[Rfam]
RNA sequence: UAGCCCAUCGGGGCAAUGGAUACCUGUUUUUCU
Numbered sequence: 001u002a003g004c005c006c007a008u009c010g011g012g013g014c015a016a017u018g019g020a021u022a023c024c025u026g027u028u029u030u031u032c033u
Stems, first nucleotide, its partner, number of pairs: 003014004017026003

The family of this 33-nucleotide RNA sequence from Nannospalax galili is "XIST RNA A repeat".
For this family Rfam cites "The Xist RNA A-repeat comprises a novel AUCG tetraloop fold and a platform for multimerization" (Duszczyk et al., RNA, 2011).